Shown here is a 71-nucleotide RNA sequence from Mytilus coruscus, a member of the family "mir-124 microRNA precursor family". The family's consensus secondary structure was predicted with PFOLD.
[Rfam]
RNA sequence: ACCGUUUCGUGUUCACUGUGUUUGCCUUGGUGAAAAAUCACGAUUAAGGCACGCGGUGAAUGCCAUGUGGA
Numbered sequence: 001a002c003c004g005u006u007u008c009g010u011g012u013u014c015a016c017u018g019u020g021u022u023u024g025c026c027u028u029g030g031u032g033a034a035a036a037a038u039c040a041c042g043a044u045u046a047a048g049g050c051a052c053g054c055g056g057u058g059a060a061u062g063c064c065a066u067g068u069g070g071a
Stems, first nucleotide, its partner, number of pairs: 003069003009063008018054003025049007
Annotation:
The source organism's lineage runs through Eukaryota, Opisthokonta, Autobranchia, Mytilidae and Mytilus.